[Rfam]
A member of the RNA family "Small Cajal body specific RNA 4" from Ceyx cyanopectus, 130 nucleotides long.

RNA sequence: ACUGGAGGACUAAUCAGACUGAGUCUGAAGAGUGAGACUCAGGUGACAUUAGCCUCCUGAAAAAAAAAGGGAUGGAGAGAGCAGCCUGUCUUGGAGCAGAGGACAGGGCUGACUGUGCCAUCUGACACUG
Numbered sequence: 001a002c003u004g005g006a007g008g009a010c011u012a013a014u015c016a017g018a019c020u021g022a023g024u025c026u027g028a029a030g031a032g033u034g035a036g037a038c039u040c041a042g043g044u045g046a047c048a049u050u051a052g053c054c055u056c057c058u059g060a061a062a063a064a065a066a067a068a069g070g071g072a073u074g075g076a077g078a079g080a081g082c083a084g085c086c087u088g089u090c091u092u093g094g095a096g097c098a099g100a101g102g103a104c105a106g107g108g109c110u111g112a113c114u115g116u117g118c119c120a121u122c123u124g125a126c127a128c129u130g
Stems, first nucleotide, its partner, number of pairs: 003059001004057005017044001019042001021040006069123003080114002082111006092103001
Annotation: scaRNAs are a specific class of small nuclear RNAs which localise to the Cajal bodies and guide the modification of RNA polymerase II transcribed spliceosomal RNAs U1, U2, U4, U5 and U12. ACA26 belongs to the H/ACA box class of guide RNAs as it has the predicted hairpin-hinge-hairpin-tail structure, conserved H/ACA-box motifs and is found associated with GAR1. The match comes from Rfam's covariance-model search (83 bits). The source organism's lineage runs through Eukaryota, Deuterostomia, Sauropsida, Theropoda and Ceyx. The family's RNA type in Rfam is small Cajal body RNA. Gene Ontology terms of the family: Cajal body, nucleolus and RNA processing. The family's consensus secondary structure was predicted with RNAfold.